RNA sequence: CGCAGUCGAGAUCGCCCCCCGUCAGCGAGUUUCGCCCGCGGGGGAGUUUGUC
Numbered sequence: 001c002g003c004a005g006u007c008g009a010g011a012u013c014g015c016c017c018c019c020c021g022u023c024a025g026c027g028a029g030u031u032u033c034g035c036c037c038g039c040g041g042g043g044g045a046g047u048u049u050g051u052c
Stems, first nucleotide, its partner, number of pairs: 016044007025035004